[Rfam]
Nucleotides: 191
Stems, first nucleotide, its partner, number of pairs: 008184004017085006024079003034070008089118006097110002100107001119145002122142008147175010
Number, partner (000 for none) and nucleotide at each position: 001000u002000u003000g004000u005000g006000u007000u008184a009183u010182a011181g012000a013000g014000g015000c016000u017085g018084c019083g020082a021081u022080g023000a024079a025078u026077c027000a028000u029000a030000a031000g032000u033000a034070u035069c036068a037067c038066g039065c040064u041063a042000g043000a044000u045000a046000u047000c048000u049000a050000g051000g052000g053000a054000u055000a056000u057000u058000u059000u060000g061000g062000a063041u064040a065039g066038u067037g068036u069035g070034a071000g072000a073000a074000a075000g076000g077026g078025a079024u080022c081021a082020u083019c084018g085017c086000c087000g088000a089118a090117g091116c092115a093114g094113a095000u096000a097110g098109g099000a100107u101000c102000c103000c104000u105000a106000g107100a108000c109098c110097u111000a112000c113094u114093c115092u116091g117090u118089u119145g120144g121000g122142a123141c124140c125139a126138u127137a128136c129135u130000g131000a132000a133000u134000a135129a136128g137127u138126a139125u140124g141123g142122u143000a144120c145119u146000g147175u148174c149173g150172c151171u152170g153169a154168a155167g156166a157000u158000u159000a160000c161000c162000c163000a164000g165000a166156u167155c168154u169153u170152c171151g172150g173149u174148g175147g176000g177000c178000g179000c180000g181011c182010u183009a184008u185000c186000u187000c188000a189000c190000a191000a
About this RNA:
A member of the RNA family "Lysine riboswitch aptamer" from Alkaliphilus sp., 191 nucleotides long. A reference for the family is Mandal et al. (2003), "Riboswitches Control Fundamental Biochemical Pathways in Bacillus subtilis and Other Bacteria", Cell. The match comes from Rfam's covariance-model search (103 bits). Gene Ontology term of the family: lysine biosynthetic process. NCBI's taxonomy places the organism under Bacteria, Bacillati, Clostridia, Peptostreptococcales, Alkaliphilus.